[Rfam]
RNA: Small nucleolar RNA SNORA81
RNA sequence: AACUUUGUUGUUAAGUAGGGUGCUAUAAUUUCAAAAAGUAGGAUUGUGUCUUGGAUUUUGUAACAAUGCCAAGAGAGUACGCAGAGGAAGAGAAGUGGCUGCAUUGGGCCCUAAAGACUGGGUGUGGUGAACCUCCUUCUUAAUGUCCAGUGUCUUUCUAUUUGGUGAAAUGUGU
Dot-bracket structure: ....................(..(...(((...((...((((((...))))))...))......)))...)..).........................(.(((((((...........(.(.....((.(..............).)).).).......))))))).)......
Numbered sequence: 001a002a003c004u005u006u007g008u009u010g011u012u013a014a015g016u017a018g019g020g021u022g023c024u025a026u027a028a029u030u031u032c033a034a035a036a037a038g039u040a041g042g043a044u045u046g047u048g049u050c051u052u053g054g055a056u057u058u059u060g061u062a063a064c065a066a067u068g069c070c071a072a073g074a075g076a077g078u079a080c081g082c083a084g085a086g087g088a089a090g091a092g093a094a095g096u097g098g099c100u101g102c103a104u105u106g107g108g109c110c111c112u113a114a115a116g117a118c119u120g121g122g123u124g125u126g127g128u129g130a131a132c133c134u135c136c137u138u139c140u141u142a143a144u145g146u147c148c149a150g151u152g153u154c155u156u157u158c159u160a161u162u163u164g165g166u167g168a169a170a171u172g173u174g175u
Stems, first nucleotide, its partner, number of pairs: 021074001024071001028067003034058002039053006100169001102167007120153001122151001128149002131146001